RNA sequence: AAUAGUUUUAUGCCACAUAAGCAUUUUUAUCUUGAAUUUUAGUAUUUUUCAUCUUGAAAAAAAUCAAAUCCAAAUUAAAAUCCUGAAAUUCAGGAUGAAAUCACUGAUGCGUAAAACUAUU
Numbered sequence: 001a002a003u004a005g006u007u008u009u010a011u012g013c014c015a016c017a018u019a020a021g022c023a024u025u026u027u028u029a030u031c032u033u034g035a036a037u038u039u040u041a042g043u044a045u046u047u048u049u050c051a052u053c054u055u056g057a058a059a060a061a062a063a064u065c066a067a068a069u070c071c072a073a074a075u076u077a078a079a080a081u082c083c084u085g086a087a088a089u090u091c092a093g094g095a096u097g098a099a100a101u102c103a104c105u106g107a108u109g110c111g112u113a114a115a116a117c118u119a120u121u
Stems, first nucleotide, its partner, number of pairs: 001121013017108002020105002023101002026099002029096011041084002045080004

Notes
Shown here is a 121-nucleotide sequence from Gossypium mustelinum, a member of the family "MIR7504 microRNA precursor family". Lineage of the source: Eukaryota > Streptophyta > Embryophyta > Malvoideae > Gossypium. Its family is annotated with RISC complex and miRNA-mediated post-transcriptional gene silencing in the Gene Ontology. Pairs were carried over by alignment from the consensus structure, which was predicted with RNAalifold.